[Rfam]
RNA sequence: CCGAAUAAUCCUGUUGAGCCGUAGACAGCAGGUGCUUAAGCUUAAUGGCGCAUGCCGCCUGCCGAGGUGAAGACGGACCCCUUGGUGAGUAGAAGGGGCCUUCCGGUCUAUGGCGGAAGGCCCCUUCUUCCAUUACCCC
Numbered sequence: 001c002c003g004a005a006u007a008a009u010c011c012u013g014u015u016g017a018g019c020c021g022u023a024g025a026c027a028g029c030a031g032g033u034g035c036u037u038a039a040g041c042u043u044a045a046u047g048g049c050g051c052a053u054g055c056c057g058c059c060u061g062c063c064g065a066g067g068u069g070a071a072g073a074c075g076g077a078c079c080c081c082u083u084g085g086u087g088a089g090u091a092g093a094a095g096g097g098g099c100c101u102u103c104c105g106g107u108c109u110a111u112g113g114c115g116g117a118a119g120g121c122c123c124c125u126u127c128u129u130c131c132a133u134u135a136c137c138c139c
Stems, first nucleotide, its partner, number of pairs: 028062006034041002095124010
A member of the RNA family "Ribosomal protein L10 leader" from Gelria sp. Kuro-4, 139 nucleotides long. Rfam classes the family as a cis-regulatory leader. About the family: This family is a putative r-protein leader autoregulatory structure found in B. subtilis and other low-GC Gram-positive bacteria. It is located in the 5' untranslated regions of mRNAs encoding ribosomal proteins L10 and L12 (rplJ-rplL). A Rho-independent transcription terminator structure that is probably involved in regulation is included at the 3' end. The match comes from Rfam's covariance-model search (47 bits). Its family is annotated with regulation of gene expression in the Gene Ontology.